[Rfam]
RNA sequence: GGGGAUGUAGCUCAGUGGCAGAGUGCCUGCUUCGCGUGUGGGAGGUCCUGGGUUCAAUCCCCAGCAUCUCCA
Numbered sequence: 001g002g003g004g005a006u007g008u009a010g011c012u013c014a015g016u017g018g019c020a021g022a023g024u025g026c027c028u029g030c031u032u033c034g035c036g037u038g039u040g041g042g043a044g045g046u047c048c049u050g051g052g053u054u055c056a057a058u059c060c061c062c063a064g065c066a067u068c069u070c071c072a
Stems, first nucleotide, its partner, number of pairs: 001071007010024004026042005048064005
Dot-bracket structure: (((((((..((((.......)))).(((((.......))))).....(((((.......)))))))))))).
The family of this 72-nucleotide RNA from Eudyptula minor is "tRNA". From the family's description: Transfer RNA (tRNA) molecules are approximately 80 nucleotides in length. Taxonomically the source falls in Eudyptula (Eukaryota, Dipnotetrapodomorpha, Theropoda, Coelurosauria). The match comes from Rfam's covariance-model search (57 bits).